The record is a 97-nucleotide RNA from Pseudoalteromonas denitrificans, which matches "Bacterial small signal recognition particle RNA" in Rfam. Its family is annotated with SRP-dependent cotranslational protein targeting to membrane, signal sequence recognition and signal recognition particle, plasma membrane targeting in the Gene Ontology. It is annotated as a non-coding RNA gene.
RNA sequence: UAUUGGUCCUCUCGCAACAAUAGUUCGUGAACUUGGUCAGGCCCGGAAGGGAGCAGCCACAGCGAAUGACUUGUGUGCCGGGAUGUGGCUGGUAAGA
Numbered sequence: 001u002a003u004u005g006g007u008c009c010u011c012u013c014g015c016a017a018c019a020a021u022a023g024u025u026c027g028u029g030a031a032c033u034u035g036g037u038c039a040g041g042c043c044c045g046g047a048a049g050g051g052a053g054c055a056g057c058c059a060c061a062g063c064g065a066a067u068g069a070c071u072u073g074u075g076u077g078c079c080g081g082g083a084u085g086u087g088g089c090u091g092g093u094a095a096g097a
Base pairs, nucleotide, nucleotide: 004091005090006089007088008087010083011082012081013080014079015075017074018073019072020071023067024066025065026064027063028062034059035058036057037056042051043050044049